A member of the RNA family "mir-184 microRNA precursor family" from Mola mola, 85 nucleotides long.
A reference for the family is Chen et al. (2005), "The developmental miRNA profiles of zebrafish as determined by small RNA cloning", Genes Dev.
NCBI's taxonomy places the organism under Eukaryota, Deuterostomia, Euteleostomi, Neoteleostei, Mola.
RNA sequence: UUGAGCACAUCUCCUUAUCACUUUUCCAGCCCAGCUAUCUAUCAAAUGUCUGUUGGACGGAGAACUGAUAAGGGUAUGUGUCUGA
Numbered sequence: 001u002u003g004a005g006c007a008c009a010u011c012u013c014c015u016u017a018u019c020a021c022u023u024u025u026c027c028a029g030c031c032c033a034g035c036u037a038u039c040u041a042u043c044a045a046a047u048g049u050c051u052g053u054u055g056g057a058c059g060g061a062g063a064a065c066u067g068a069u070a071a072g073g074g075u076a077u078g079u080g081u082c083u084g085a
Stems, first nucleotide, its partner, number of pairs: 012074009022064006030056002